[Rfam]
RNA sequence: CCCUCCAAGUAGCCAACCAAUUGGACAGGGGCGGGGGACCCACAGGUACGUGGGGUCGCCGGAGAUCAGAUCCGGCGCGAUCCCUUGGGGUGAAGCCGCGCAGCGCGCGGCCGGGCACUACACCUUCCCGCCCGAACCCGACAGCUCACCUCGCAGGCGUGCAUGGAAGGACUC
Dot-bracket structure: .(((.......................)))((((((....((...........................................))(((.....((((.......))))..((((.............))))...))).........))))))....................